[Rfam]
RNA: DABA-DC-AT RNA
RNA sequence: ACAAUCUCGGAGUGAAUAGCACUUUCUGGGGGAUACGCGUAGUGAACAUUCAGGCUGAUUGUGUCAUUACGUAGGGUAGGUAUCAGCAAGUCCUUUUGUUGAUAGACGGGAUACUCUAGUCGUGGGAGCGGCAUCAAAAUGGGAAACCCAACA
Numbered sequence: 001a002c003a004a005u006c007u008c009g010g011a012g013u014g015a016a017u018a019g020c021a022c023u024u025u026c027u028g029g030g031g032g033a034u035a036c037g038c039g040u041a042g043u044g045a046a047c048a049u050u051c052a053g054g055c056u057g058a059u060u061g062u063g064u065c066a067u068u069a070c071g072u073a074g075g076g077u078a079g080g081u082a083u084c085a086g087c088a089a090g091u092c093c094u095u096u097u098g099u100u101g102a103u104a105g106a107c108g109g110g111a112u113a114c115u116c117u118a119g120u121c122g123u124g125g126g127a128g129c130g131g132c133a134u135c136a137a138a139a140u141g142g143g144a145a146a147c148c149c150a151a152c153a
Base pairs, nucleotide, nucleotide: 006030007029008028009027010026011025037072038071039070040069041068042067043066044065046062047061048060081104082103083102084101085100086099087098088097089096090095119132120131121130122129123128